[Rfam]
RNA: U11 spliceosomal RNA
RNA sequence: AAAAAGGGCUUCUGCUGUGAGUGGCACAUGGGGAGGGGCGGCUGUGGCUUUGCCUCUUUCUGUGCGGAAUCGCUAUCAAGAGAUUUCGGAAGCAUAAUUUUUGUGCUCGGGGCAGCUGGUAAUCGCUUGUUCUGGCUCCCCA
Numbered sequence: 001a002a003a004a005a006g007g008g009c010u011u012c013u014g015c016u017g018u019g020a021g022u023g024g025c026a027c028a029u030g031g032g033g034a035g036g037g038g039c040g041g042c043u044g045u046g047g048c049u050u051u052g053c054c055u056c057u058u059u060c061u062g063u064g065c066g067g068a069a070u071c072g073c074u075a076u077c078a079a080g081a082g083a084u085u086u087c088g089g090a091a092g093c094a095u096a097a098u099u100u101u102u103g104u105g106c107u108c109g110g111g112g113c114a115g116c117u118g119g120u121a122a123u124c125g126c127u128u129g130u131u132c133u134g135g136c137u138c139c140c141c142a
Stems, first nucleotide, its partner, number of pairs: 008093005013026005027064015065088007110140003115136005121131003